[Rfam]
Nucleotides: 066
Base pairs, nucleotide, nucleotide: 005062006061007060008059009058010057015051018053019052021048022047023046024045025044027042
Number, partner (000 for none) and nucleotide at each position: 001000a002000c003000c004000g005062a006061g007060a008059g009058u010057a011000g012000a013000a014000g015051c016000g017000u018053u019052c020000a021048g022047c023046g024045c025044c026000g027042c028000c029000g030000g031000a032000a033000c034000a035000g036000a037000g038000a039000g040000c041000c042027g043000g044025g045024g046023c047022g048021c049000c050000c051015g052019g053018a054000a055000a056000u057010u058009g059008c060007u061006c062005u063000u064000g065000u066000c
The record is a 66-nucleotide RNA sequence from Azoarcus indigens, which matches "Xanthine riboswitch aptamer (NMT1 RNA)" in Rfam. Taxonomically the source falls in Azoarcus (Bacteria, Pseudomonadota, Rhodocyclales, Zoogloeaceae). A search with the family's covariance model found it, with a score of 53 bits.